RNA sequence: GAAGUUCGCCAGGCAAUCGCUGCACCCAUCGAGGAGCAGAGGAAAGUCCGGGCCCCGCAGAGCAGGAUGCCGGCUAACGGCCGGGCGCCGUGAGGCGACGGAAAGUGCCACAGAGAAUAGACCGCCGAUGGCCGUCCGGGCUUGGCCGCCGCUAGGUGGCAAAGUCCCCUCCUGAAGAGGAGGCUUCGCGUUUCGGCGCGGAGGGAGGCUGCCGCGGAAGCGGCAGCGGCUGGUGCAGCGAAAGCCGCGCCAGCCGGAUCAGGUAAGGGUGAAACGGUGCGAAGCCGCGCGUCGGCGUGGUUUCGGAGCGCGCGCAAGCGCGAUCGGGUAAGAGCCCACCGCGGGACUGGUAACAGGACCGGCACGGCAAACCCCAUCCGGGGCAAGGCCAAAUAGGGGAGCCAUGGCGUGGCUCGCGCCGCUCCCGGGUAGGCUGCUGGAGCGUCGUGGUAACACGGCGCCAAGAGGAAUGAUUGCCCAGCGGCACGGUACAACCGCUGCUGUUCGACAGAACCCGGCUUAUCGGCGAACUUCCCUU
Numbered sequence: 001g002a003a004g005u006u007c008g009c010c011a012g013g014c015a016a017u018c019g020c021u022g023c024a025c026c027c028a029u030c031g032a033g034g035a036g037c038a039g040a041g042g043a044a045a046g047u048c049c050g051g052g053c054c055c056c057g058c059a060g061a062g063c064a065g066g067a068u069g070c071c072g073g074c075u076a077a078c079g080g081c082c083g084g085g086c087g088c089c090g091u092g093a094g095g096c097g098a099c100g101g102a103a104a105g106u107g108c109c110a111c112a113g114a115g116a117a118u119a120g121a122c123c124g125c126c127g128a129u130g131g132c133c134g135u136c137c138g139g140g141c142u143u144g145g146c147c148g149c150c151g152c153u154a155g156g157u158g159g160c161a162a163a164g165u166c167c168c169c170u171c172c173u174g175a176a177g178a179g180g181a182g183g184c185u186u187c188g189c190g191u192u193u194c195g196g197c198g199c200g201g202a203g204g205g206a207g208g209c210u211g212c213c214g215c216g217g218a219a220g221c222g223g224c225a226g227c228g229g230c231u232g233g234u235g236c237a238g239c240g241a242a243a244g245c246c247g248c249g250c251c252a253g254c255c256g257g258a259u260c261a262g263g264u265a266a267g268g269g270u271g272a273a274a275c276g277g278u279g280c281g282a283a284g285c286c287g288c289g290c291g292u293c294g295g296c297g298u299g300g301u302u303u304c305g306g307a308g309c310g311c312g313c314g315c316a317a318g319c320g321c322g323a324u325c326g327g328g329u330a331a332g333a334g335c336c337c338a339c340c341g342c343g344g345g346a347c348u349g350g351u352a353a354c355a356g357g358a359c360c361g362g363c364a365c366g367g368c369a370a371a372c373c374c375c376a377u378c379c380g381g382g383g384c385a386a387g388g389c390c391a392a393a394u395a396g397g398g399g400a401g402c403c404a405u406g407g408c409g410u411g412g413c414u415c416g417c418g419c420c421g422c423u424c425c426c427g428g429g430u431a432g433g434c435u436g437c438u439g440g441a442g443c444g445u446c447g448u449g450g451u452a453a454c455a456c457g458g459c460g461c462c463a464a465g466a467g468g469a470a471u472g473a474u475u476g477c478c479c480a481g482c483g484g485c486a487c488g489g490u491a492c493a494a495c496c497g498c499u500g501c502u503g504u505u506c507g508a509c510a511g512a513a514c515c516c517g518g519c520u521u522a523u524c525g526g527c528g529a530a531c532u533u534c535c536c537u538u
Stems, first nucleotide, its partner, number of pairs: 001534010011523001012478007020039004025034002044521003048518005053383004060415004065379005070084005085099001086097004100374002105372002107368003122268002124264003129261003276340004341363001342361003347356003387435004397426006406420005442461008
About this RNA
This 538-nucleotide RNA sequence from a Rhodocyclaceae bacterium belongs to the Rfam family "Bacterial RNase P class A". Lineage of the source: Bacteria > Pseudomonadati > Betaproteobacteria > Rhodocyclales > Rhodocyclaceae. Pairs were carried over by alignment from the consensus structure, which is taken from published work. The match comes from Rfam's covariance-model search (252 bits).